Overview: This 237-nucleotide RNA sequence from Streptomyces sp. A73 belongs to the Rfam family "Streptomyces sRNA 4677". On this family, see Hindra et al., PLoS One 2014: "Complex intra-operonic dynamics mediated by a small RNA in Streptomyces coelicolor". The source organism's lineage runs through Bacteria, Actinomycetes, Kitasatosporales, Streptomycetaceae and Streptomyces.
RNA sequence: CGCCCCGGUGGCCCGCGACAUCAAGGGCGUAAAAGAACCCGCGAAGCACCUCACCAAGCCCCACCGACCUCCCGUCACCCACACGAGUGAACGAGGCCAACUCGGCUGGCCCUUCGGCACGUUGGCUGGCAUAAGCUCCAGCCGAGUACCGCACGACAACCGCACAUGCGACGGCCCCCGGCCGGGACUGGCAUCCCGAUCGAGGGCCUGACCACCAAGGAAGAAAGCCCCUUCCCG
Numbered sequence: 001c002g003c004c005c006c007g008g009u010g011g012c013c014c015g016c017g018a019c020a021u022c023a024a025g026g027g028c029g030u031a032a033a034a035g036a037a038c039c040c041g042c043g044a045a046g047c048a049c050c051u052c053a054c055c056a057a058g059c060c061c062c063a064c065c066g067a068c069c070u071c072c073c074g075u076c077a078c079c080c081a082c083a084c085g086a087g088u089g090a091a092c093g094a095g096g097c098c099a100a101c102u103c104g105g106c107u108g109g110c111c112c113u114u115c116g117g118c119a120c121g122u123u124g125g126c127u128g129g130c131a132u133a134a135g136c137u138c139c140a141g142c143c144g145a146g147u148a149c150c151g152c153a154c155g156a157c158a159a160c161c162g163c164a165c166a167u168g169c170g171a172c173g174g175c176c177c178c179c180g181g182c183c184g185g186g187a188c189u190g191g192c193a194u195c196c197c198g199a200u201c202g203a204g205g206g207c208c209u210g211a212c213c214a215c216c217a218a219g220g221a222a223g224a225a226a227g228c229c230c231c232u233u234c235c236c237g
Stems, first nucleotide, its partner, number of pairs: 007216004075090004080085001105142005173208005179202002184197004219235005